[Rfam]
RNA sequence: GUAAUAAAGAAGAAGUAGUCCGCUUCUCACCUUCUCGGCGAUUGCUGUUUGGGUUAAUAUGACGAAGGCCUGAUGGGUUUGUUAUGUUUGGAGCGGAUACGAUUAUCCGCUUUUUUUAUUAUGU
Numbered sequence: 001g002u003a004a005u006a007a008a009g010a011a012g013a014a015g016u017a018g019u020c021c022g023c024u025u026c027u028c029a030c031c032u033u034c035u036c037g038g039c040g041a042u043u044g045c046u047g048u049u050u051g052g053g054u055u056a057a058u059a060u061g062a063c064g065a066a067g068g069c070c071u072g073a074u075g076g077g078u079u080u081g082u083u084a085u086g087u088u089u090g091g092a093g094c095g096g097a098u099a100c101g102a103u104u105a106u107c108c109g110c111u112u113u114u115u116u117u118a119u120u121a122u123g124u
Base pairs, nucleotide, nucleotide: 011027012026013025014024015023016022029054030053031052036047037046038045039044092111093110094109095108096107097106098105099104
Dot-bracket structure: ..........((((((.....)))))).(((....((((....))))....))).....................................((((((((....)))))))).............
Rfam assigns this 124-nucleotide RNA sequence from Sinanaerobacter chloroacetimidivorans to the family "Ribosomal protein L20 leader". The family's consensus secondary structure was predicted with CMfinder. Lineage of the source: Bacteria > Bacillati > Bacillota > Anaerovoracaceae > Sinanaerobacter.